[Rfam]
RNA sequence: CUGGUCGGAAUAUCGCCAAUCCACAAUAUGGCCUGUUCCGGCAAAAAAGGAGGAUAUAUCAACCCCGCAGGACUUGCGGUGCGGCACAGUGGAGACGUGUCGUAAUGCGGCAGCCAAGCCCGGCCGCCGUGAGGGAGCGCAUUGCGGAGGCAGCGCUGUCAGAGUCAGAAAAUUAUGGCA
Numbered sequence: 001c002u003g004g005u006c007g008g009a010a011u012a013u014c015g016c017c018a019a020u021c022c023a024c025a026a027u028a029u030g031g032c033c034u035g036u037u038c039c040g041g042c043a044a045a046a047a048a049g050g051a052g053g054a055u056a057u058a059u060c061a062a063c064c065c066c067g068c069a070g071g072a073c074u075u076g077c078g079g080u081g082c083g084g085c086a087c088a089g090u091g092g093a094g095a096c097g098u099g100u101c102g103u104a105a106u107g108c109g110g111c112a113g114c115c116a117a118g119c120c121c122g123g124c125c126g127c128c129g130u131g132a133g134g135g136a137g138c139g140c141a142u143u144g145c146g147g148a149g150g151c152a153g154c155g156c157u158g159u160c161a162g163a164g165u166c167a168g169a170a171a172a173u174u175a176u177g178g179c180a
Stems, first nucleotide, its partner, number of pairs: 003038002006035003015032004065079004071166005080104008089096002107130005113124003133160002136157005143152003
A member of the RNA family "malK-I RNA", 180 nucleotides long.
Pairs were carried over by alignment from the consensus structure, which is taken from published work.
The sequence is in the family's curated seed alignment.